[Rfam]
Shown here is a 92-nucleotide RNA from Streptococcus infantis, a member of the family "Cia-dependent small RNA csRNA1".
RNA sequence: AUUAAAUAAAGACCUCCUAACUUUAUUUAAUUAAAAUCCUAACUUUUUCAUAAUAAUCUCCUACAAAAGUCACUCCAAAGGGUGACUUUUGU
Dot-bracket structure: (((((((((((.........)))))))))))..................................(((((((((......)))))))))...

The literature on the family includes a 2007 paper in Mol Microbiol by Halfmann et al., "Identification of the genes directly controlled by the response regulator CiaR in Streptococcus pneumoniae: five out of 15 promoters drive expression of small non-coding RNAs".